[Rfam]
This 153-nucleotide RNA sequence from Parascaris univalens belongs to the Rfam family "Nematode snoRNA ceN88".
The organism belongs to Parascaris, within Eukaryota.
On this family, see Jia et al., BMC Mol Biol 2007: "Systematic identification of non-coding RNA 2,2,7-trimethylguanosine cap structures in Caenorhabditis elegans".
By type it is an H/ACA-box small nucleolar RNA.
The family has 6 seed sequences and 99 matches in Rfam 15.1.

RNA sequence: AUCCUCUCAUCUUGGCGCUUUGACGCUUGUGCGUGGAAGUGUAUGCUUCAUGGGAGGGAAAGGAUGCACUACCGAAUGGUACUGCGUUCGGAUGAACUUCGGUGUUGGUCGAAUUACAGAAGGCUGAUGUCAUCCUCUGCAUCCGAAACAUCC
Numbered sequence: 001a002u003c004c005u006c007u008c009a010u011c012u013u014g015g016c017g018c019u020u021u022g023a024c025g026c027u028u029g030u031g032c033g034u035g036g037a038a039g040u041g042u043a044u045g046c047u048u049c050a051u052g053g054g055a056g057g058g059a060a061a062g063g064a065u066g067c068a069c070u071a072c073c074g075a076a077u078g079g080u081a082c083u084g085c086g087u088u089c090g091g092a093u094g095a096a097c098u099u100c101g102g103u104g105u106u107g108g109u110c111g112a113a114u115u116a117c118a119g120a121a122g123g124c125u126g127a128u129g130u131c132a133u134c135c136u137c138u139g140c141a142u143c144c145g146a147a148a149c150a151u152c153c
Base pairs, nucleotide, nucleotide: 003057004056005055006054007053008052009051010050015042016041017040018039021036023034024033066085067084068083087147088146089145090144091143092142093141094140101131102130105127106126107125108124109123110122